U8 small nucleolar RNA: a 132-nucleotide sequence from Colobus angolensis. Pairs were carried over by alignment from the consensus structure, which is taken from published work.
[Rfam]
RNA sequence: UCGUUAGGUGGGAUAAUUCUUACCUGUUUCUCCUUUUGGAGGGCAGAUAGAAUAGGCUGAUAGGAGAUGCAUGAAACAUGGUUUCAUUCUCUGUGUAAUCAGGACUUGCAACACCGAUUACUCCUUUCUGAU
Numbered sequence: 001u002c003g004u005u006a007g008g009u010g011g012g013a014u015a016a017u018u019c020u021u022a023c024c025u026g027u028u029u030c031u032c033c034u035u036u037u038g039g040a041g042g043g044c045a046g047a048u049a050g051a052a053u054a055g056g057c058u059g060a061u062a063g064g065a066g067a068u069g070c071a072u073g074a075a076a077c078a079u080g081g082u083u084u085c086a087u088u089c090u091c092u093g094u095g096u097a098a099u100c101a102g103g104a105c106u107u108g109c110a111a112c113a114c115c116g117a118u119u120a121c122u123c124c125u126u127u128c129u130g131a132u
Stems, first nucleotide, its partner, number of pairs: 024046003028043006073091002076088001095121006103115001
It scores 100 bits against the family's covariance model.